[Rfam]
The record is a 380-nucleotide RNA from Micrococcus cohnii, which matches "Bacterial RNase P class A" in Rfam. NCBI's taxonomy places the organism under Bacteria, Bacillati, Actinomycetota, Micrococcales, Micrococcus. Its family is annotated with tRNA processing, ribonuclease P activity and dimeric ribonuclease P complex in the Gene Ontology.
RNA sequence: ACGGAUCGGCGGACGGCCGCGGCCCCGGCGCAGGCCGGGGACGAGGAAAGUCCGGGCACCGCAGAGCGAGAUGGUGGGUAACGCCCACUCGGGGAGACCCGCAGGCCAGUGCCACAGAAAACAGACCGCCUCCCGCGCGACGCGGGCGGUAAGGGUGAAACGGUGGAGUAAGAGACCACCAGCGGCCCCGGUGACGGGGCCGGCUCGGUAAACCCCAUCCGGUGCAAGGCCGAACAGGAUGUGCUCGAGGGCUGCUCGCCUGAGCAUCCGGGUUGGCCGCUCGAGCCCGUCGGCAACGACGGGCCUAGAUAGAUGGUCGUCACUCCGAGGCCGGCGACGGCGUCGGAGAACAGAACCCGGCUCACAGCCGGUCCGUCCCC
Numbered sequence: 001a002c003g004g005a006u007c008g009g010c011g012g013a014c015g016g017c018c019g020c021g022g023c024c025c026c027g028g029c030g031c032a033g034g035c036c037g038g039g040g041a042c043g044a045g046g047a048a049a050g051u052c053c054g055g056g057c058a059c060c061g062c063a064g065a066g067c068g069a070g071a072u073g074g075u076g077g078g079u080a081a082c083g084c085c086c087a088c089u090c091g092g093g094g095a096g097a098c099c100c101g102c103a104g105g106c107c108a109g110u111g112c113c114a115c116a117g118a119a120a121a122c123a124g125a126c127c128g129c130c131u132c133c134c135g136c137g138c139g140a141c142g143c144g145g146g147c148g149g150u151a152a153g154g155g156u157g158a159a160a161c162g163g164u165g166g167a168g169u170a171a172g173a174g175a176c177c178a179c180c181a182g183c184g185g186c187c188c189c190g191g192u193g194a195c196g197g198g199g200c201c202g203g204c205u206c207g208g209u210a211a212a213c214c215c216c217a218u219c220c221g222g223u224g225c226a227a228g229g230c231c232g233a234a235c236a237g238g239a240u241g242u243g244c245u246c247g248a249g250g251g252c253u254g255c256u257c258g259c260c261u262g263a264g265c266a267u268c269c270g271g272g273u274u275g276g277c278c279g280c281u282c283g284a285g286c287c288c289g290u291c292g293g294c295a296a297c298g299a300c301g302g303g304c305c306u307a308g309a310u311a312g313a314u315g316g317u318c319g320u321c322a323c324u325c326c327g328a329g330g331c332c333g334g335c336g337a338c339g340g341c342g343u344c345g346g347a348g349a350a351c352a353g354a355a356c357c358c359g360g361c362u363c364a365c366a367g368c369c370g371g372u373c374c375g376u377c378c379c380c
Stems, first nucleotide, its partner, number of pairs: 001376010011365001012321007020043002023040006049362002052360005057224004064257004070219004074088005089103001090101004104215002109213002111209003126154002128150003132146005162180005182204001183202008228278004237269006249261004285304008
Annotation:
Rfam classes the family as a ribozyme. It scores 283 bits against the family's covariance model.